mir-9229 microRNA precursor family: a 74-nucleotide RNA sequence from Myotis lucifugus. Rfam links the family to the GO terms miRNA-mediated post-transcriptional gene silencing and RISC complex.
RNA sequence: GAGACACCCUUAUGGGGCAGGACUUGCUUCAGUGGGGAUUUGGCGCUCACUGAGUCUGCCCCCUGUGUGUCGCU
Number, nucleotide and partner (000 for none) at each position: 001g073002a000003g071004a070005c069006a068007c067008c000009c065010u000011u000012a064013u000014g062015g061016g060017g059018c058019a057020g000021g056022a055023c054024u000025u000026g000027c000028u000029u053030c052031a051032g050033u049034g048035g047036g046037g044038a000039u000040u000041u000042g000043g000044c037045g000046c036047u035048c034049a033050c032051u031052g030053a029054g023055u022056c021057u019058g018059c017060c016061c015062c014063c000064u012065g009066u000067g007068u006069g005070u004071c003072g000073c001074u000